[Rfam]
RNA sequence: GGACUGUGACGAGUUGUGUGAAAGGUCUCGUUCGUCGUAAUGGCAAAUUUGCCUUGCCGACCAUCCUGAUAUAUCACCACCCAUAUUCCGAGUCC
Dot-bracket structure: ((((........................................((.......))....................................))))